[Rfam]
RNA sequence: AGAUUGAUGAUGACUUACACAUAUACUUUUUUUUUUUUGGAAAGGUGAAGAAAAUGAGUGAAAACUCAGUACUAUCAUCCUCAUCUAACUGAGGUCC
Numbered sequence: 001a002g003a004u005u006g007a008u009g010a011u012g013a014c015u016u017a018c019a020c021a022u023a024u025a026c027u028u029u030u031u032u033u034u035u036u037u038u039g040g041a042a043a044g045g046u047g048a049a050g051a052a053a054a055u056g057a058g059u060g061a062a063a064a065c066u067c068a069g070u071a072c073u074a075u076c077a078u079c080c081u082c083a084u085c086u087a088a089c090u091g092a093g094g095u096c097c
Stems, first nucleotide, its partner, number of pairs: 002096004026060001028058003032052005

Source information:
This 97-nucleotide sequence from Pongo abelii belongs to the Rfam family "Small nucleolar RNA SNORD116". The match comes from Rfam's covariance-model search (68 bits). Rfam classes the family as a C/D-box small nucleolar RNA. The source organism's lineage runs through Eukaryota, Opisthokonta, Craniata, Boreoeutheria and Pongo. Rfam links the family to the GO terms nucleolus and RNA processing.